RNA sequence: ACGACCUUACUUGAACAGGAUCUGUUCUAUAGGCUCGUACCGCUGCAUCCUUUACCAAUAAGGAGGCAAGCAAACAAGUCUGGUUGAUGUGAAAUGAUCUCUGUGCCAGAGCGUGAUUGACGGCCAUGAUUCUUCGAUCAGAAGUCAUCAACGGCUGUAGAUGAUCGUUCCUACCUGUUCUCUCAGGUCGGGGUGGCCCAGAGGUUGUCUGACAGACA
Numbered sequence: 001a002c003g004a005c006c007u008u009a010c011u012u013g014a015a016c017a018g019g020a021u022c023u024g025u026u027c028u029a030u031a032g033g034c035u036c037g038u039a040c041c042g043c044u045g046c047a048u049c050c051u052u053u054a055c056c057a058a059u060a061a062g063g064a065g066g067c068a069a070g071c072a073a074a075c076a077a078g079u080c081u082g083g084u085u086g087a088u089g090u091g092a093a094a095u096g097a098u099c100u101c102u103g104u105g106c107c108a109g110a111g112c113g114u115g116a117u118u119g120a121c122g123g124c125c126a127u128g129a130u131u132c133u134u135c136g137a138u139c140a141g142a143a144g145u146c147a148u149c150a151a152c153g154g155c156u157g158u159a160g161a162u163g164a165u166c167g168u169u170c171c172u173a174c175c176u177g178u179u180c181u182c183u184c185a186g187g188u189c190g191g192g193g194u195g196g197c198c199c200a201g202a203g204g205u206u207g208u209c210u211g212a213c214a215g216a217c218a
Base pairs, nucleotide, nucleotide: 001038002037003035005033006032007031013027014026015025016024017023018022044068045067046066048064049063050062051061052060078217079216080215081214082213097205098204099203100202101201102200103199105197106196107195108194110169111168112167113166120158121157122156123155124154125153127151128149129148130147132144133143134142135141170191171190173188174187175186176185177184
Shown here is a 218-nucleotide RNA from Zizania palustris, a member of the family "Plant small nucleolar RNA U3". Rfam's curators write: Small nucleolar RNAs (snoRNAs) are involved in the processing and modification of rRNA in the nucleolus. There are two main classes of snoRNAs: the box C/D class, and the box H/ACA class. U3 snoRNA is a member of the box C/D class. The family is grouped with related families in Rfam's "U3 clan".